[Rfam]
RNA: Mammalian CPEB3 ribozyme
RNA sequence: UCAGGUUUAAGGCCAUAGCAGAAGUGCUCAUGGCAUGGCCAAAUCAGAUCCCAAUGAAUCUGCCAAUUCUGCU
Numbered sequence: 001u002c003a004g005g006u007u008u009a010a011g012g013c014c015a016u017a018g019c020a021g022a023a024g025u026g027c028u029c030a031u032g033g034c035a036u037g038g039c040c041a042a043a044u045c046a047g048a049u050c051c052c053a054a055u056g057a058a059u060c061u062g063c064c065a066a067u068u069c070u071g072c073u
Stems, first nucleotide, its partner, number of pairs: 011040004017073007024036003045062005051056001